[Rfam]
RNA sequence: CUGUCCCGGACGUCUGGUCGACAGGAUUGGAUCGGCAGGAGUGGAGGACCCGAUUUUUACGGGGCGUACGCGCUGUUCCGGCAGCGAGUCCGUCCCUUGGGGUGAAGCCGCGUCAGCGGCCGGGCAUCUUCGCCAGCCCGAACCCGACAGGUCAUCCUUCGCAGGCGGCUGACGAAGGGUUG
Numbered sequence: 001c002u003g004u005c006c007c008g009g010a011c012g013u014c015u016g017g018u019c020g021a022c023a024g025g026a027u028u029g030g031a032u033c034g035g036c037a038g039g040a041g042u043g044g045a046g047g048a049c050c051c052g053a054u055u056u057u058u059a060c061g062g063g064g065c066g067u068a069c070g071c072g073c074u075g076u077u078c079c080g081g082c083a084g085c086g087a088g089u090c091c092g093u094c095c096c097u098u099g100g101g102g103u104g105a106a107g108c109c110g111c112g113u114c115a116g117c118g119g120c121c122g123g124g125c126a127u128c129u130u131c132g133c134c135a136g137c138c139c140g141a142a143c144c145c146g147a148c149a150g151g152u153c154a155u156c157c158u159u160c161g162c163a164g165g166c167g168g169c170u171g172a173c174g175a176a177g178g179g180u181u182g
Stems, first nucleotide, its partner, number of pairs: 004040003041162006051099002100145003108119004122139004
RNA: c-di-AMP riboswitch aptamer (ydaO/yuaA leader)
Organism: Streptomyces venezuelae